Rfam assigns this 99-nucleotide RNA from Echeneis naucrates to the family "Z30 small nucleolar RNA". The family's consensus secondary structure was predicted with PFOLD. It is annotated as a C/D-box small nucleolar RNA. The literature on the family includes a 2002 paper in Mol Cell Biol by Galardi et al., "Purified box C/D snoRNPs are able to reproduce site-specific 2'-O-methylation of target RNA in vitro". Rfam links the family to the GO terms RNA processing and nucleolus.
RNA sequence: CUGCAGUGAUGAGCUUUGAGGUGACUGACCUGGUAUUGCUUCCUUCUGGGGAAUGCUCUGACCAGGGAAUGAUCUCAACUUAAUCUUCUCUCUGAGCAG
Dot-bracket structure: ..((.................................((.(...........).)).......................................))..